Background
The record is a 132-nucleotide sequence from Sarcophilus harrisii, which matches "Small nucleolar RNA SNORA56" in Rfam. Rfam describes the family as follows. ACA56 is a member of the H/ACA class of snoRNA that guide the sites of modification of uridines to pseudouridines. It is annotated as an H/ACA-box small nucleolar RNA. The match comes from Rfam's covariance-model search (117 bits).
RNA sequence: AAGCAGACAGUUAUCCCUUUUUAGUCUUGCUCUUGUGACUUUAGAGGGAGUCAGUCUGCAAAAUGAAAUGGGGAGCUGCUUCUGUUCAGCAUCACAGUGUGUUGAUGGUGACUUCAGCUUUGCCAAACAUCA
Dot-bracket structure: ..((((((...........(((((((..........))..)))))........)))))).........(((.(((..(((...(((...(((((..(....))))))..)))...)))))).))).......
Numbered sequence: 001a002a003g004c005a006g007a008c009a010g011u012u013a014u015c016c017c018u019u020u021u022u023a024g025u026c027u028u029g030c031u032c033u034u035g036u037g038a039c040u041u042u043a044g045a046g047g048g049a050g051u052c053a054g055u056c057u058g059c060a061a062a063a064u065g066a067a068a069u070g071g072g073g074a075g076c077u078g079c080u081u082c083u084g085u086u087c088a089g090c091a092u093c094a095c096a097g098u099g100u101g102u103u104g105a106u107g108g109u110g111a112c113u114u115c116a117g118c119u120u121u122g123c124c125a126a127a128c129a130u131c132a
Stems, first nucleotide, its partner, number of pairs: 003059006020045005025038002069125003073121003078118003084112003090107005097102001